[Rfam]
The family of this 81-nucleotide RNA from Shewanella algae is "antisense RNA of dnaA mRNA". The organism belongs to Shewanella, within Bacteria. The base pairs follow the family's consensus structure, which was predicted with RNAfold. The match comes from Rfam's covariance-model search (64 bits). For this family Rfam cites "Identification and characterization of a cis-encoded antisense RNA associated with the replication process of Salmonella enterica serovar Typhi" (Dadzie et al., PLoS One, 2013).
RNA sequence: UUUGGCAUUGGGAUUAUUCUUGAUAAUGCCGUUGCCUACGGCGUGCAGUAGGUGAGUCUUACCCAGACCGGUACCGCCAUA
Numbered sequence: 001u002u003u004g005g006c007a008u009u010g011g012g013a014u015u016a017u018u019c020u021u022g023a024u025a026a027u028g029c030c031g032u033u034g035c036c037u038a039c040g041g042c043g044u045g046c047a048g049u050a051g052g053u054g055a056g057u058c059u060u061a062c063c064c065a066g067a068c069c070g071g072u073a074c075c076g077c078c079a080u081a
Stems, first nucleotide, its partner, number of pairs: 005042002009038004016032002021028001051078004056074002061072003